[Rfam]
RNA sequence: GAGUGUGUCUGUAUGGCAAGUCUAACCGGAGUAUCCGGGGAGGCACAGGGAAACCGACAUGGCCGCAGGGCUUUGCCCGAGGGCCGCCGUCUUCAAGGGCGGGGAGCCAUGUGGACACGACCCGAAUCCGGACGAUCUACGCAUGGACAAGAUGAAGCGUGCCGAAAGGCACGUGGAAGUCUGUUAGAGUUGGUGUCCUACAAUACCCUCUCGUGAUCUAUGUGUAGGGGUGAAAGGCCCAUCGAGUCCGGCAACAGCUGGUU
Numbered sequence: 001g002a003g004u005g006u007g008u009c010u011g012u013a014u015g016g017c018a019a020g021u022c023u024a025a026c027c028g029g030a031g032u033a034u035c036c037g038g039g040g041a042g043g044c045a046c047a048g049g050g051a052a053a054c055c056g057a058c059a060u061g062g063c064c065g066c067a068g069g070g071c072u073u074u075g076c077c078c079g080a081g082g083g084c085c086g087c088c089g090u091c092u093u094c095a096a097g098g099g100c101g102g103g104g105a106g107c108c109a110u111g112u113g114g115a116c117a118c119g120a121c122c123c124g125a126a127u128c129c130g131g132a133c134g135a136u137c138u139a140c141g142c143a144u145g146g147a148c149a150a151g152a153u154g155a156a157g158c159g160u161g162c163c164g165a166a167a168g169g170c171a172c173g174u175g176g177a178a179g180u181c182u183g184u185u186a187g188a189g190u191u192g193g194u195g196u197c198c199u200a201c202a203a204u205a206c207c208c209u210c211u212c213g214u215g216a217u218c219u220a221u222g223u224g225u226a227g228g229g230g231u232g233a234a235a236g237g238c239c240c241a242u243c244g245a246g247u248c249c250g251g252c253a254a255c256a257g258c259u260g261g262u263u
Base pairs, nucleotide, nucleotide: 005118006117007116008115009114010113011112012111013110014109015108016107017106020044021043022042023041026038027037028036029035048055049054061085062084063083064082068078069077070076071075088101089100090099091098121261122260124258128251129250130249131248132247133246137227138226139225140224141223142222143221144220145219146218147217148215150182151181152180153179157174158173159172160171161170162169163168187212188211189210192208193207195206196205229239230238231237
RNA: Archaeal large subunit ribosomal RNA, nucleotides 647 to 909
Organism: Haloarcula marismortui